[Rfam]
RNA sequence: UGACUUUUUUCUAAGUUAAACUUUUUAAAGUUUGACCAAGUUUAUAGAAAGUAGCAAUAUUUUCAACACAAAACAAAGAUACUAUCAAAAUAUAUUCAAUGAUGGAUUUAAUGAAGCUAAUUUGGUGUUUUAGAUGUUGCUAGAUUUUUCUAUAAAUUUAGUCAAACUUAAAGAAGUUUGACCUAAAAUAAGUCAA
Numbered sequence: 001u002g003a004c005u006u007u008u009u010u011c012u013a014a015g016u017u018a019a020a021c022u023u024u025u026u027a028a029a030g031u032u033u034g035a036c037c038a039a040g041u042u043u044a045u046a047g048a049a050a051g052u053a054g055c056a057a058u059a060u061u062u063u064c065a066a067c068a069c070a071a072a073a074c075a076a077a078g079a080u081a082c083u084a085u086c087a088a089a090a091u092a093u094a095u096u097c098a099a100u101g102a103u104g105g106a107u108u109u110a111a112u113g114a115a116g117c118u119a120a121u122u123u124g125g126u127g128u129u130u131u132a133g134a135u136g137u138u139g140c141u142a143g144a145u146u147u148u149u150c151u152a153u154a155a156a157u158u159u160a161g162u163c164a165a166a167c168u169u170a171a172a173g174a175a176g177u178u179u180g181a182c183c184u185a186a187a188a189u190a191a192g193u194c195a196a
Stems, first nucleotide, its partner, number of pairs: 005191002008188002012185002015182012031166005043152002046149005052142003056138007065129001069124004
The family of this 196-nucleotide RNA sequence from Oryza meyeriana is "MIR1435 microRNA precursor family".
The source organism's lineage runs through Eukaryota, Euphyllophyta, Poaceae, Oryzinae and Oryza meyeriana.
It scores 98 bits against the family's covariance model.